[Rfam]
RNA: MIR1120/MIR1122 microRNA precursor family
RNA sequence: GUACUCCCUCCGUCCCAUAAUAUAAGAUGUUUUUGCAAGCUAAACUAGCUUGCAAAAAUGUCUUACAUUGUGGGACGGAAGGAGUAC
Numbered sequence: 001g002u003a004c005u006c007c008c009u010c011c012g013u014c015c016c017a018u019a020a021u022a023u024a025a026g027a028u029g030u031u032u033u034u035g036c037a038a039g040c041u042a043a044a045c046u047a048g049c050u051u052g053c054a055a056a057a058a059u060g061u062c063u064u065a066c067a068u069u070g071u072g073g074g075a076c077g078g079a080a081g082g083a084g085u086a087c
Base pairs, nucleotide, nucleotide: 003085004084005083007081009079010078011077013075014074015073016072017071019069020068021067023065024064025063026062027061028060029059030058031057032056033055034054035053036052037051038050039049040048041047